[Rfam]
RNA sequence: UCCUCGAUGGUCUAGUGGUCAUGAUUUCCGCUUGUCACUACCCAGUAACGAGCGCGGGAGACCAGGGUUCGAUUCCCUGUCGGGGAG
Number, nucleotide and partner (000 for none) at each position: 001u086002c085003c084004u083005c082006g081007a080008u000009g000010g025011u024012c023013u000014a000015g000016u000017g000018g000019u000020c000021a000022u000023g012024a011025u010026u000027u058028c057029c056030g055031c054032u000033u000034g000035u000036c000037a000038c000039u000040a000041c000042c000043c000044a000045g000046u000047a000048a000049c000050g000051a000052g000053c000054g031055c030056g029057g028058g027059a000060g000061a000062c000063c079064a078065g077066g076067g075068u000069u000070c000071g000072a000073u000074u000075c067076c066077c065078u064079g063080u007081c006082g005083g004084g003085g002086a001087g000
RNA: tRNA